[Rfam]
RNA sequence: CGGAGGAUGAUGAAAACAAUCAGACGGAUUCCCAUUGAUUAAUCCAUGAGAACAUUAUCAGCUACUUCUGACUCUU
Numbered sequence: 001c002g003g004a005g006g007a008u009g010a011u012g013a014a015a016a017c018a019a020u021c022a023g024a025c026g027g028a029u030u031c032c033c034a035u036u037g038a039u040u041a042a043u044c045c046a047u048g049a050g051a052a053c054a055u056u057a058u059c060a061g062c063u064a065c066u067u068c069u070g071a072c073u074c075u076u
Stems, first nucleotide, its partner, number of pairs: 002075004
RNA: Small nucleolar RNA R12